Shown here is a 92-nucleotide RNA from Streptomyces sp. RB17, a member of the family "Streptomyces RNA 3202". A search with the family's covariance model found it, with a score of 79 bits. The literature on the family includes a 2011 paper in RNA Biol by Vockenhuber et al., "Deep sequencing-based identification of small non-coding RNAs in Streptomyces coelicolor". The family's RNA type in Rfam is small RNA. Rfam describes the family as follows. Identified by deep sequencing of transcriptome at the end of exponential growth phase. Appears smaller on northern blot than sequencing transcript.
[Rfam]
RNA sequence: CCAGGUCCCGACGCACACCCCCCCCGGCGCCGGGACCUUCCCAGCCGGGCUUCGGCACCCAUCCCCCCCGGGUGCCGAAGCCCGGCUUUUAU
Number, nucleotide and partner (000 for none) at each position: 001c000002c000003a000004g000005g036006u035007c034008c033009c032010g031011a000012c029013g028014c027015a000016c000017a000018c000019c000020c000021c000022c000023c000024c000025c000026g000027g014028c013029g012030c000031c010032g009033g008034g007035a006036c005037c000038u000039u000040c000041c000042c000043a087044g086045c085046c084047g083048g082049g081050c080051u079052u000053c077054g076055g075056c074057a073058c072059c071060c070061a000062u000063c000064c000065c000066c000067c000068c000069c000070g060071g059072g058073u057074g056075c055076c054077g053078a000079a051080g050081c049082c048083c047084g046085g045086c044087u043088u000089u000090u000091a000092u000